Source information:
The record is an 88-nucleotide RNA from Streptomyces capitiformicae, which matches "Streptomyces RNA 6106" in Rfam.
[Rfam]
RNA sequence: ACGUCGCCCCAGUGCGGCGUGCGCUCCGAUCAUCGGGGCCGGACAGGACGGGGGUGGUGCCGUGUCGGCGCAGCACCACUCCCGUGCC
Numbered sequence: 001a002c003g004u005c006g007c008c009c010c011a012g013u014g015c016g017g018c019g020u021g022c023g024c025u026c027c028g029a030u031c032a033u034c035g036g037g038g039c040c041g042g043a044c045a046g047g048a049c050g051g052g053g054g055u056g057g058u059g060c061c062g063u064g065u066c067g068g069c070g071c072a073g074c075a076c077c078a079c080u081c082c083c084g085u086g087c088c
Stems, first nucleotide, its partner, number of pairs: 001020007022041002024038006048085013062071003
The literature on the family includes a 2011 paper in RNA Biol by Vockenhuber et al., "Deep sequencing-based identification of small non-coding RNAs in Streptomyces coelicolor".